[Rfam]
Rfam assigns this 128-nucleotide sequence from Cyprinus carpio to the family "Small nucleolar RNA SNORA77".
RNA sequence: GCAGACUCACUCUGUUUAAGACUGACACAUCCAGCCUUAGACUUUUUCUGUCUGCAACAGAAAUAGGACGAACAUUACAAACUGCCUUGCCAUUCAUUUGGGAGGUGACUGUAAAUUCUGACAUUUUU
Numbered sequence: 001g002c003a004g005a006c007u008c009a010c011u012c013u014g015u016u017u018a019a020g021a022c023u024g025a026c027a028c029a030u031c032c033a034g035c036c037u038u039a040g041a042c043u044u045u046u047u048c049u050g051u052c053u054g055c056a057a058c059a060g061a062a063a064u065a066g067g068a069c070g071a072a073c074a075u076u077a078c079a080a081a082c083u084g085c086c087u088u089g090c091c092a093u094u095c096a097u098u099u100g101g102g103a104g105g106u107g108a109c110u111g112u113a114a115a116u117u118c119u120g121a122c123a124u125u126u127u128u
Stems, first nucleotide, its partner, number of pairs: 001055006014042007022034003067119001070118001072117001075114005083107005

By type it is an H/ACA-box small nucleolar RNA. Rfam 15.1 lists 843 matches to the family in 607 species.